[Rfam]
RNA sequence: AAGGAGUAGCCUGAAAAUCCUAAAAAGAGUAAGGA
Numbered sequence: 001a002a003g004g005a006g007u008a009g010c011c012u013g014a015a016a017a018u019c020c021u022a023a024a025a026a027g028a029g030u031a032a033g034g035a
Stems, first nucleotide, its partner, number of pairs: 002021004010034003
Dot-bracket structure: .((((....[[[.....))))..........]]].
RNA: DUF805b RNA